Background:
The family of this 98-nucleotide sequence from Cohaesibacter marisflavi is "Bacterial small signal recognition particle RNA". NCBI's taxonomy places the organism under Bacteria, Pseudomonadati, Hyphomicrobiales, Cohaesibacteraceae, Cohaesibacter. Clan: SRP clan. Rfam classes the family as a non-coding RNA gene.
[Rfam]
RNA sequence: GAAGGCUGGCAAUGGACGUUCCCCUCGCCAAUCGGGUCAGGUCCGGAAGGAAGCAGCCCUAACGAGUUUCAGAGCGGGUCAUCUGUUCAGUCUUCCAC
Numbered sequence: 001g002a003a004g005g006c007u008g009g010c011a012a013u014g015g016a017c018g019u020u021c022c023c024c025u026c027g028c029c030a031a032u033c034g035g036g037u038c039a040g041g042u043c044c045g046g047a048a049g050g051a052a053g054c055a056g057c058c059c060u061a062a063c064g065a066g067u068u069u070c071a072g073a074g075c076g077g078g079u080c081a082u083c084u085g086u087u088c089a090g091u092c093u094u095c096c097a098c
Stems, first nucleotide, its partner, number of pairs: 004092005012082003017076005024066004034059004042051003
On this family, see Rosenblad et al., Nucleic Acids Res 2003: "SRPDB: Signal Recognition Particle Database".